RNA: Streptococcus sRNA SpR20
RNA sequence: UGGCACAGCCCUUGUUCUCGCGGCUAUCUGGUUAGGAUGGACAAA
Numbered sequence: 001u002g003g004c005a006c007a008g009c010c011c012u013u014g015u016u017c018u019c020g021c022g023g024c025u026a027u028c029u030g031g032u033u034a035g036g037a038u039g040g041a042c043a044a045a
Base pairs, nucleotide, nucleotide: 002010003009004008022042024040025039026038027037028036029035
Dot-bracket structure: .(((...)))...........(.((((((.....)))))).)...